[Rfam]
RNA sequence: AAUAGGAGUAGAAGCAGUCAACGCCGUCCGGCGCGGGUCAUUGCUCCUUCA
Numbered sequence: 001a002a003u004a005g006g007a008g009u010a011g012a013a014g015c016a017g018u019c020a021a022c023g024c025c026g027u028c029c030g031g032c033g034c035g036g037g038u039c040a041u042u043g044c045u046c047c048u049u050c051a
Stems, first nucleotide, its partner, number of pairs: 005047006015036001019037001022033004
The record is a 51-nucleotide sequence, which matches "Xanthine riboswitch aptamer (NMT1 RNA)" in Rfam. Pairs were carried over by alignment from the consensus structure, which is taken from published work. The literature on the family includes a 2021 paper in Nucleic Acids Res by Xu et al., "Insights into xanthine riboswitch structure and metal ion-mediated ligand recognition".